[Rfam]
RNA sequence: UAGUGUUUAUGAUGUGACUAGAUUAAAACCUUCCAGGCAUCUAGUUGCUGAUAUUACCAUCCAGGA
Numbered sequence: 001u002a003g004u005g006u007u008u009a010u011g012a013u014g015u016g017a018c019u020a021g022a023u024u025a026a027a028a029c030c031u032u033c034c035a036g037g038c039a040u041c042u043a044g045u046u047g048c049u050g051a052u053a054u055u056a057c058c059a060u061c062c063a064g065g066a
Stems, first nucleotide, its partner, number of pairs: 001066001004063002014048010029037003
Shown here is a 66-nucleotide RNA from Pantherophis guttatus, a member of the family "Selenocysteine insertion sequence 1". Gene Ontology term of the family: selenocysteine incorporation. By type it is a cis-regulatory element. NCBI's taxonomy places the organism under Eukaryota, Metazoa, Sarcopterygii, Amniota, Pantherophis. The literature on the family includes a 2002 paper in Biochimie by Lambert et al., "A survey of metazoan selenocysteine insertion sequences". The base pairs follow the family's consensus structure, which is taken from published work.